A member of the RNA family "LOOT RNA", 112 nucleotides long.
By type it is a small RNA.
RNA sequence: UGCCUAAACUCUACAACAAUGUAGGGUAUGGCAAAAAUCCUUGUCAGAAGUAAGCUCUUCAUGAGAAUCUGACAAGGUCUUGCAGGGAAACUUGCAUGGGGGCGCAAGCCUC
Numbered sequence: 001u002g003c004c005u006a007a008a009c010u011c012u013a014c015a016a017c018a019a020u021g022u023a024g025g026g027u028a029u030g031g032c033a034a035a036a037a038u039c040c041u042u043g044u045c046a047g048a049a050g051u052a053a054g055c056u057c058u059u060c061a062u063g064a065g066a067a068u069c070u071g072a073c074a075a076g077g078u079c080u081u082g083c084a085g086g087g088a089a090a091c092u093u094g095c096a097u098g099g100g101g102g103c104g105c106a107a108g109c110c111u112c
Base pairs, nucleotide, nucleotide: 001033002032003031004030009026010025011024012023013022014021015020039077040076041075042074043073044072045071046070047069048068055065056064057063079098081096082095083094084093085092086091099112100111101110102109103108